This 138-nucleotide sequence from Bacillus sp. FJAT-49736 belongs to the Rfam family "FMN riboswitch aptamer (RFN element)". Rfam links the family to the GO term FMN binding.
[Rfam]
RNA sequence: GUUCAUCUUCGGGGCUGGGUGAAAUUCCCGACCGGCGGUGAUGAAGCACUGUGUGCUUCUAAGCCCGCGAGCCUGUAUUUGGCAGGAUUUGGUGAGAUUCCAAAGCCGACAGUAAAGUCUGGAUGGGAGAAGAUGAAG
Numbered sequence: 001g002u003u004c005a006u007c008u009u010c011g012g013g014g015c016u017g018g019g020u021g022a023a024a025u026u027c028c029c030g031a032c033c034g035g036c037g038g039u040g041a042u043g044a045a046g047c048a049c050u051g052u053g054u055g056c057u058u059c060u061a062a063g064c065c066c067g068c069g070a071g072c073c074u075g076u077a078u079u080u081g082g083c084a085g086g087a088u089u090u091g092g093u094g095a096g097a098u099u100c101c102a103a104a105g106c107c108g109a110c111a112g113u114a115a116a117g118u119c120u121g122g123a124u125g126g127g128a129g130a131a132g133a134u135g136a137a138g
Stems, first nucleotide, its partner, number of pairs: 003136008017029003031118002033108002035068004063106002073082001088104005110121003
The match comes from Rfam's covariance-model search (122 bits). The family's consensus secondary structure is taken from published work.